[Rfam]
Shown here is a 68-nucleotide sequence from Cyclopterus lumpus, a member of the family "mir-29 microRNA precursor family".
RNA sequence: GGAAGCUGGUUUCAGAUAGUGGCUUAGAGUAUUUUCAUCUAUCUAGCACCAUUUGAAAUCAGUGUUCU
Numbered sequence: 001g002g003a004a005g006c007u008g009g010u011u012u013c014a015g016a017u018a019g020u021g022g023c024u025u026a027g028a029g030u031a032u033u034u035u036c037a038u039c040u041a042u043c044u045a046g047c048a049c050c051a052u053u054u055g056a057a058a059u060c061a062g063u064g065u066u067c068u
Stems, first nucleotide, its partner, number of pairs: 001068004005063010016052002019049003025045004

A reference for the family is Ambros (2001), "microRNAs: tiny regulators with great potential", Cell. Rfam's curators write: This family represents the microRNA (miRNA) precursors mir-29. NCBI's taxonomy places the organism under Eukaryota, Gnathostomata, Actinopteri, Clupeocephala, Cyclopterus. The base pairs follow the family's consensus structure, which was predicted with PFOLD. Rfam links the family to the GO terms RISC complex and gene silencing by miRNA.